RNA: Actinobacteria sRNA Ms_IGR-5
RNA sequence: ACACGUGAGAGGAGGUGGUCCAGCGUUGAGUAGCAACCGGACUCGUGAGGUGGCUGUCCGCUAGCACCUGAGGACGCAGUUCCGACCGCGUGGAAUGCCGGUAGGUGCCGGCGACUCCCAGGCAGUCACCCGUGAUCCCCGGGCCCGAGCCCGUCCAGCUCGGCUUGCGCACCCGAUGGUGCGGCCCGGGGAUCACGCACGUC
Numbered sequence: 001a002c003a004c005g006u007g008a009g010a011g012g013a014g015g016u017g018g019u020c021c022a023g024c025g026u027u028g029a030g031u032a033g034c035a036a037c038c039g040g041a042c043u044c045g046u047g048a049g050g051u052g053g054c055u056g057u058c059c060g061c062u063a064g065c066a067c068c069u070g071a072g073g074a075c076g077c078a079g080u081u082c083c084g085a086c087c088g089c090g091u092g093g094a095a096u097g098c099c100g101g102u103a104g105g106u107g108c109c110g111g112c113g114a115c116u117c118c119c120a121g122g123c124a125g126u127c128a129c130c131c132g133u134g135a136u137c138c139c140c141g142g143g144c145c146c147g148a149g150c151c152c153g154u155c156c157a158g159c160u161c162g163g164c165u166u167g168c169g170c171a172c173c174c175g176a177u178g179g180u181g182c183g184g185c186c187c188g189g190g191g192a193u194c195a196c197g198c199a200c201g202u203c
Base pairs, nucleotide, nucleotide: 014058015057016056017055018054019053059113060112061111062110064108065107067105068104069103070102072099073098131197132196133195134194135193136192137191138190139189140188141187142186143185145163146162147161148160149159150158